This 80-nucleotide RNA sequence from Eleutherodactylus coqui belongs to the Rfam family "Small nucleolar RNA MBII-202". The base pairs follow the family's consensus structure, which was predicted with PFOLD. Rfam classes the family as a C/D-box small nucleolar RNA. Taxonomically the source falls in Eleutherodactylus (Eukaryota, Metazoa, Bilateria, Hyloidea). A search with the family's covariance model found it, with a score of 46 bits.
RNA sequence: UGACAACUUCUCCGGAAUCUCUGCAUAGCUGUGAUGAUUUCUUUGAACCAUUUGAAGCUGAUGACCCUCUAUGUGUAGUC
Number, nucleotide and partner (000 for none) at each position: 001u000002g080003a079004c078005a000006a076007c000008u000009u000010c000011u000012c000013c000014g000015g000016a000017a000018u000019c000020u000021c000022u000023g000024c000025a000026u000027a000028g000029c000030u000031g000032u000033g000034a000035u000036g000037a000038u000039u000040u000041c000042u000043u000044u000045g000046a000047a000048c000049c000050a000051u000052u000053u000054g000055a000056a000057g000058c000059u000060g000061a000062u000063g000064a000065c000066c000067c000068u000069c000070u000071a000072u000073g000074u000075g000076u006077a000078g004079u003080c002